[Rfam]
RNA sequence: AGCUCUUCUUUGCCAUAUGGCUUAGAUCAAGUGUAGUAUCUGUUCUUUCUAGUUUAAUCGCUAGGAGGCCCUUACGGGGGCUGAUUCACGAUUAUUCUUAUCUUUGGAAACGGUCUUGGGGUCCCUGGGCUUGCUCACACCCAAGGACACAGUGUCGCUUCUAUCCGCACUACCGGAAGAUGACGCGAACCCUU
Numbered sequence: 001a002g003c004u005c006u007u008c009u010u011u012g013c014c015a016u017a018u019g020g021c022u023u024a025g026a027u028c029a030a031g032u033g034u035a036g037u038a039u040c041u042g043u044u045c046u047u048u049c050u051a052g053u054u055u056a057a058u059c060g061c062u063a064g065g066a067g068g069c070c071c072u073u074a075c076g077g078g079g080g081c082u083g084a085u086u087c088a089c090g091a092u093u094a095u096u097c098u099u100a101u102c103u104u105u106g107g108a109a110a111c112g113g114u115c116u117u118g119g120g121g122u123c124c125c126u127g128g129g130c131u132u133g134c135u136c137a138c139a140c141c142c143a144a145g146g147a148c149a150c151a152g153u154g155u156c157g158c159u160u161c162u163a164u165c166c167g168c169a170c171u172a173c174c175g176g177a178a179g180a181u182g183a184c185g186c187g188a189a190c191c192c193u194u
Stems, first nucleotide, its partner, number of pairs: 007026003012021003047066006067082006113148005119142002126137004152186005158179005
The record is a 194-nucleotide RNA sequence from Lentithecium fluviatile, which matches "U2 spliceosomal RNA" in Rfam.
The source organism's lineage runs through Eukaryota, Dothideomycetes, Pleosporales, Lentitheciaceae and Lentithecium fluviatile.
U2 is a small nuclear RNA (snRNA) component of the spliceosome (involved in pre-mRNA splicing). Complementary binding between U2 snRNA (in an area lying towards the 5' end but 3' to hairpin I) and the branchpoint sequence (BPS) of the intron results the bulging out of an unpaired adenosine, on the BPS, which initiates a nucleophilic attack at the intronic 5' splice site, thus starting the first of two transesterification reactions that mediate splicing.
It is annotated as a spliceosomal small nuclear RNA.
Pairs were carried over by alignment from the consensus structure, which is taken from published work.
It scores 130 bits against the family's covariance model.